Description: This 133-nucleotide RNA from Pogona vitticeps belongs to the Rfam family "Small nucleolar RNA SNORA77". On this family, see Schattner et al., RNA 2006: "A computational screen for mammalian pseudouridylation guide H/ACA RNAs". Rfam 15.1 lists 843 matches to the family in 607 species.
RNA sequence: GCAGGCUCACUCUGUGCCUGACUGCAAUAUUCAGUCAAGGUGCUUUUUAAGUCUGCUAUAGUAACAAUCCAGGAUGUCGUGAACAUAUCCCUGAUUGUGGAACUCAUGUUUCAACUCUUCUUGGCACAUCACU
Number, nucleotide and partner (000 for none) at each position: 001g056002c055003a054004g053005g052006c051007u000008c000009a000010c000011u000012c000013u000014g043015u042016g041017c040018c039019u038020g036021a000022c034023u033024g032025c000026a000027a000028u000029a000030u000031u000032c024033a023034g022035u000036c020037a000038a019039g018040g017041u016042g015043c014044u000045u000046u000047u000048u000049a000050a000051g006052u005053c004054u003055g002056c001057u000058a000059u000060a000061g000062u000063a000064a000065c000066a000067a000068u124069c123070c000071a121072g120073g119074a118075u000076g115077u114078c000079g112080u000081g110082a000083a000084c108085a107086u106087a000088u000089c000090c000091c000092u000093g000094a000095u000096u000097g000098u000099g000100g000101a000102a000103c000104u000105c000106a086107u085108g084109u000110u081111u000112c079113a000114a077115c076116u000117c000118u074119u073120c072121u071122u000123g069124g068125c000126a000127c000128a000129u000130c000131a000132c000133u000